[Rfam]
RNA sequence: CAGGCCGUGAUGAUUGGCGCAGGGGUACGGACCUCAGCUGAGUCAUGGGAGCUGAGUGUGUGUGCUUUGCCUCCGUCUGCACGUGGCAGGCUGAUGGCACGCACUUACACGAGACUUGCCUCGAUCUGAGCCUG
Numbered sequence: 001c002a003g004g005c006c007g008u009g010a011u012g013a014u015u016g017g018c019g020c021a022g023g024g025g026u027a028c029g030g031a032c033c034u035c036a037g038c039u040g041a042g043u044c045a046u047g048g049g050a051g052c053u054g055a056g057u058g059u060g061u062g063u064g065c066u067u068u069g070c071c072u073c074c075g076u077c078u079g080c081a082c083g084u085g086g087c088a089g090g091c092u093g094a095u096g097g098c099a100c101g102c103a104c105u106u107a108c109a110c111g112a113g114a115c116u117u118g119c120c121u122c123g124a125u126c127u128g129a130g131c132c133u134g
Stems, first nucleotide, its partner, number of pairs: 001134005
The record is a 134-nucleotide sequence from Sciurus carolinensis, which matches "Small nucleolar RNA SNORD94" in Rfam. The family's consensus secondary structure was predicted with RNAalifold. Gene Ontology terms of the family: RNA processing and nucleolus. The literature on the family includes a 2002 paper in Mol Cell Biol by Galardi et al., "Purified box C/D snoRNPs are able to reproduce site-specific 2'-O-methylation of target RNA in vitro". The match comes from Rfam's covariance-model search (143 bits). It is annotated as a C/D-box small nucleolar RNA.